This 66-nucleotide sequence belongs to the Rfam family "S15-Flavobacteria ribosomal protein leader". It is annotated as a cis-regulatory leader. Rfam's curators put it in the seed alignment. A reference for the family is Eckert and Weinberg (2020), "Discovery of 20 novel ribosomal leader candidates in bacteria and archaea", BMC Microbiol. Clan: Ribosomal Protein S15 Leader clan.
[Rfam]
RNA sequence: UACCUUUGCACUCGAAUAAGAAAAACUUAUUCAUACAUAAAAAUCAUUUAAAAUAAUAUUGGCAUG
Numbered sequence: 001u002a003c004c005u006u007u008g009c010a011c012u013c014g015a016a017u018a019a020g021a022a023a024a025a026c027u028u029a030u031u032c033a034u035a036c037a038u039a040a041a042a043a044u045c046a047u048u049u050a051a052a053a054u055a056a057u058a059u060u061g062g063c064a065u066g
Base pairs, nucleotide, nucleotide: 014032015031016030017029018028019027